[Rfam]
RNA sequence: UAUGAGAAGGGCGUUCAGUGGAUGCCUUGGCACCAAGAGGCGAUGAAGGACGUGGCACGCUGCGAAAAGCCGCGGGGAGAUGCGAGCGAUCGUUGAUCCGCGGAUGUCCGAAUGGGGCAACCCCUCCCUUUGGGAGAUCCUGCGCUGAAUACAUAGGCGCAGGAGGCGAACCCGGUGAACUGAAACAUCUCAGUAGCCGGAGGAAAAGACAUCAACAGAGAUUCCGCGAGUAGUGGCGAGCGAAAGCGGAGCAGGCCAGUGGUCUUUGUGAGUUAAGCCAAACAGUCUGGAAAGGCUGGCCAGAGUGGGUGAUAGCCCCGUAGGCGUAUGGCUCGCAGAGAUCCUUGAGUAGGGCGGGGCACGUGAAACCCUGUCUGAACGUAGGGGGACCACCCUCUAAGCCUAAAUACUCCUUGGUGACCGAUAGUGAACAAGUACCGUGAGGGAAAGGUGAAAAGCACCCCGACAAGGGGAGUGAAAGAGACCUGAAACCGAACGCCUACAAG
Numbered sequence: 001u002a003u004g005a006g007a008a009g010g011g012c013g014u015u016c017a018g019u020g021g022a023u024g025c026c027u028u029g030g031c032a033c034c035a036a037g038a039g040g041c042g043a044u045g046a047a048g049g050a051c052g053u054g055g056c057a058c059g060c061u062g063c064g065a066a067a068a069g070c071c072g073c074g075g076g077g078a079g080a081u082g083c084g085a086g087c088g089a090u091c092g093u094u095g096a097u098c099c100g101c102g103g104a105u106g107u108c109c110g111a112a113u114g115g116g117g118c119a120a121c122c123c124c125u126c127c128c129u130u131u132g133g134g135a136g137a138u139c140c141u142g143c144g145c146u147g148a149a150u151a152c153a154u155a156g157g158c159g160c161a162g163g164a165g166g167c168g169a170a171c172c173c174g175g176u177g178a179a180c181u182g183a184a185a186c187a188u189c190u191c192a193g194u195a196g197c198c199g200g201a202g203g204a205a206a207a208g209a210c211a212u213c214a215a216c217a218g219a220g221a222u223u224c225c226g227c228g229a230g231u232a233g234u235g236g237c238g239a240g241c242g243a244a245a246g247c248g249g250a251g252c253a254g255g256c257c258a259g260u261g262g263u264c265u266u267u268g269u270g271a272g273u274u275a276a277g278c279c280a281a282a283c284a285g286u287c288u289g290g291a292a293a294g295g296c297u298g299g300c301c302a303g304a305g306u307g308g309g310u311g312a313u314a315g316c317c318c319c320g321u322a323g324g325c326g327u328a329u330g331g332c333u334c335g336c337a338g339a340g341a342u343c344c345u346u347g348a349g350u351a352g353g354g355c356g357g358g359g360c361a362c363g364u365g366a367a368a369c370c371c372u373g374u375c376u377g378a379a380c381g382u383a384g385g386g387g388g389a390c391c392a393c394c395c396u397c398u399a400a401g402c403c404u405a406a407a408u409a410c411u412c413c414u415u416g417g418u419g420a421c422c423g424a425u426a427g428u429g430a431a432c433a434a435g436u437a438c439c440g441u442g443a444g445g446g447a448a449a450g451g452u453g454a455a456a457a458g459c460a461c462c463c464c465g466a467c468a469a470g471g472g473g474a475g476u477g478a479a480a481g482a483g484a485c486c487u488g489a490a491a492c493c494g495a496a497c498g499c500c501u502a503c504a505a506g
Base pairs, nucleotide, nucleotide: 009501010500011499012498013497014496015495016494018492024486025451026450029422030421031419032418033417034416035415036414037413038411039410040167041166048109049108050107051064052063053062070103071102072101073100074099075098076097079091080090081089114123115122116121124136125135126134127133138164139163140162141161142160143159144158145157146156171202172200173199174198175197176196182189183188212219213218222407223250224249225248226247227246233241234240253404254403255402256401263341264340265339266338267337268336269335270334271333272332273331274330275329277325278324279323283298284297285296286295287294301305307319308318309317352376353375354374355373356372357371358370359369383398384397385396386395387394438445439444461473462472463471464470